[Rfam]
RNA sequence: GGCACAAACUCGAAGUAGUGUAGAUUAGUAGGGUCAGAUGAUCCUCCUAAUCCACUCUAUUUCAAAUUUGGGCCC
Numbered sequence: 001g002g003c004a005c006a007a008a009c010u011c012g013a014a015g016u017a018g019u020g021u022a023g024a025u026u027a028g029u030a031g032g033g034u035c036a037g038a039u040g041a042u043c044c045u046c047c048u049a050a051u052c053c054a055c056u057c058u059a060u061u062u063c064a065a066a067u068u069u070g071g072g073c074c075c
Stems, first nucleotide, its partner, number of pairs: 001074003005070004012063007020055002023052001025050004030045001032043004
The record is a 75-nucleotide sequence from Haemonchus placei, which matches "mir-5928 microRNA precursor family" in Rfam. The family has 5 seed sequences and 1,672 matches in Rfam 15.1. It scores 69 bits against the family's covariance model. Its family is annotated with RISC complex and miRNA-mediated post-transcriptional gene silencing in the Gene Ontology. The source organism's lineage runs through Eukaryota, Opisthokonta, Metazoa, Nematoda and Haemonchus. Pairs were carried over by alignment from the consensus structure, which was predicted with RNAalifold.